[Rfam]
Background
The record is a 265-nucleotide RNA sequence from Brevibacillus fulvus, which matches "Bacterial large signal recognition particle RNA" in Rfam. The family's consensus secondary structure is taken from published work. It scores 213 bits against the family's covariance model.
RNA sequence: CCGUGCUAGAUGGGGAGGUUGCGGUGCCCUGUAACCUGCAAUCCGCAAUAGCAGGAUUGAAUUCCUAUCAGAGGUUUUCUCAUGUGAGGCUGCCUUAUGGCGGUGGUGUUGAAGAUUGGGUCCUGUGCAACGCAAACCCAUGAACCUGGUCAGGUCCGGAAGGAAGCAGCCAUAAGUGGAAUUUUGCGUGUGCCGCAGGGUAGCCUGGUCCGAGCCAUUGCCAUAAGUAACGCUUGGAUGGGAAUUAUCGAAGAUAGGUGCACGG
Numbered sequence: 001c002c003g004u005g006c007u008a009g010a011u012g013g014g015g016a017g018g019u020u021g022c023g024g025u026g027c028c029c030u031g032u033a034a035c036c037u038g039c040a041a042u043c044c045g046c047a048a049u050a051g052c053a054g055g056a057u058u059g060a061a062u063u064c065c066u067a068u069c070a071g072a073g074g075u076u077u078u079c080u081c082a083u084g085u086g087a088g089g090c091u092g093c094c095u096u097a098u099g100g101c102g103g104u105g106g107u108g109u110u111g112a113a114g115a116u117u118g119g120g121u122c123c124u125g126u127g128c129a130a131c132g133c134a135a136a137c138c139c140a141u142g143a144a145c146c147u148g149g150u151c152a153g154g155u156c157c158g159g160a161a162g163g164a165a166g167c168a169g170c171c172a173u174a175a176g177u178g179g180a181a182u183u184u185u186g187c188g189u190g191u192g193c194c195g196c197a198g199g200g201u202a203g204c205c206u207g208g209u210c211c212g213a214g215c216c217a218u219u220g221c222c223a224u225a226a227g228u229a230a231c232g233c234u235u236g237g238a239u240g241g242g243a244a245u246u247a248u249c250g251a252a253g254a255u256a257g258g259u260g261c262a263c264g265g
Stems, first nucleotide, its partner, number of pairs: 001265006009058003012030004017025001019023001035055005064258006073249003079242005085236004091229002095226006103219001105216003114210008122199006128190002131188005138179004147172004155164003
The source organism's lineage runs through Bacteria, Bacillota, Bacilli, Paenibacillaceae and Brevibacillus.